[Rfam]
RNA sequence: GAGUAAGCAAGGAUGAUGAUUCAAUUAGAUGUGUGAAUGGGGAAUCCUCCUUCAUGAACUUUAACUUUUUGAGGCAUUUUCAUAGAGACUGACUUGCUACUC
Number, nucleotide and partner (000 for none) at each position: 001g102002a101003g100004u099005a000006a098007g097008c096009a095010a094011g093012g000013a000014u000015g000016a000017u000018g000019a000020u000021u000022c000023a000024a000025u000026u000027a000028g000029a000030u000031g000032u000033g000034u000035g000036a000037a000038u000039g000040g000041g000042g000043a000044a000045u000046c000047c000048u000049c000050c000051u000052u000053c000054a000055u000056g000057a000058a000059c000060u000061u000062u000063a000064a000065c000066u000067u000068u000069u000070u000071g000072a000073g000074g000075c000076a000077u000078u000079u000080u000081c000082a000083u000084a000085g000086a000087g000088a000089c000090u000091g000092a000093c011094u010095u009096g008097c007098u006099a004100c003101u002102c001
Shown here is a 102-nucleotide sequence from Macleaya cordata, a member of the family "Small nucleolar RNA Z266".
Rfam links the family to the GO terms RNA processing and nucleolus.
Rfam 15.1 lists 719 matches to the family in 213 species.
On this family, see Chen et al., Nucleic Acids Res 2003: "The high diversity of snoRNAs in plants: identification and comparative study of 120 snoRNA genes from Oryza sativa".